[Rfam]
This 125-nucleotide sequence from Aceticella autotrophica belongs to the Rfam family "Molybdenum/Tungsten riboswitch aptamer (Moco RNA motif)". Lineage of the source: Bacteria > Bacillati > Bacillota > Thermoanaerobacteraceae > Aceticella.

RNA sequence: AAAAUUUAAAAUCUCCGAGUCCUUAUUUCUAAAGUAAGUUAUAUCUUGCUAUGAAAUAAGAACCGAUAGGGUAUUAAUGGAAACGUUAAUGCCUCCUGUUUGGAAAGGAGAAAGGACUAACUAAU
Numbered sequence: 001a002a003a004a005u006u007u008a009a010a011a012u013c014u015c016c017g018a019g020u021c022c023u024u025a026u027u028u029c030u031a032a033a034g035u036a037a038g039u040u041a042u043a044u045c046u047u048g049c050u051a052u053g054a055a056a057u058a059a060g061a062a063c064c065g066a067u068a069g070g071g072u073a074u075u076a077a078u079g080g081a082a083a084c085g086u087u088a089a090u091g092c093c094u095c096c097u098g099u100u101u102g103g104a105a106a107g108g109a110g111a112a113a114g115g116a117c118u119a120a121c122u123a124a125u
Base pairs, nucleotide, nucleotide: 004118006116012111013110014109015108016107019063020062022060023059024058025057026056027055028054029053033050034049035048036047037046038045069094070093071092072091073090074089075088076087077086078085079084095103096102